Shown here is a 67-nucleotide RNA from Bombyx mori, a member of the family "mir-2774 microRNA precursor family".
A reference for the family is Liu et al. (2010), "MicroRNAs of Bombyx mori identified by Solexa sequencing", BMC Genomics.
The family's consensus secondary structure was predicted with RNAalifold.
RNA sequence: AUAACACUCUGACCAUCGGUCUACAGAGCAAUUCCACACGCUCGGCGGAAAAUCUUCCCUUUGUCGU
Dot-bracket structure: ...(((....((..((...(((.(.((((..........)))).).)))..))..))....)))...
Record summary: Gene Ontology terms of the family: RISC complex and miRNA-mediated post-transcriptional gene silencing.